This 84-nucleotide RNA from Denticeps clupeoides belongs to the Rfam family "mir-25 microRNA precursor family".
The match comes from Rfam's covariance-model search (71 bits).
RNA sequence: AGCCAGUGUUGAGAGGCGGAGACUCGGGCAAUUGCUGUCACCCUCCUGAGGCAUUGCACUUGUCUCGGUCUGCCAGUACUGGUA
Numbered sequence: 001a002g003c004c005a006g007u008g009u010u011g012a013g014a015g016g017c018g019g020a021g022a023c024u025c026g027g028g029c030a031a032u033u034g035c036u037g038u039c040a041c042c043c044u045c046c047u048g049a050g051g052c053a054u055u056g057c058a059c060u061u062g063u064c065u066c067g068g069u070c071u072g073c074c075a076g077u078a079c080u081g082g083u084a
Stems, first nucleotide, its partner, number of pairs: 002083003006079004014071004019066005028057005034052003037046001
For this family Rfam cites "Identification and characterization of two novel classes of small RNAs in the mouse germline: retrotransposon-derived siRNAs in oocytes and germline small RNAs in testes" (Watanabe et al., Genes Dev, 2006). Rfam links the family to the GO terms RISC complex and miRNA-mediated post-transcriptional gene silencing. The family's consensus secondary structure was predicted with RNAalifold.